[Rfam]
Shown here is a 49-nucleotide sequence, a member of the family "SAM/SAH riboswitch aptamer". Rfam links the family to the GO terms S-adenosylmethionine metabolic process and regulation of gene expression. The base pairs follow the family's consensus structure, which is taken from published work.
RNA sequence: GUGCUGUCACAACGGCUUCCUGGCGUGGCGGCGAAAACCUAAUGGAGCA
Numbered sequence: 001g002u003g004c005u006g007u008c009a010c011a012a013c014g015g016c017u018u019c020c021u022g023g024c025g026u027g028g029c030g031g032c033g034a035a036a037a038c039c040u041a042a043u044g045g046a047g048c049a
Stems, first nucleotide, its partner, number of pairs: 004031007013022002015048003019045002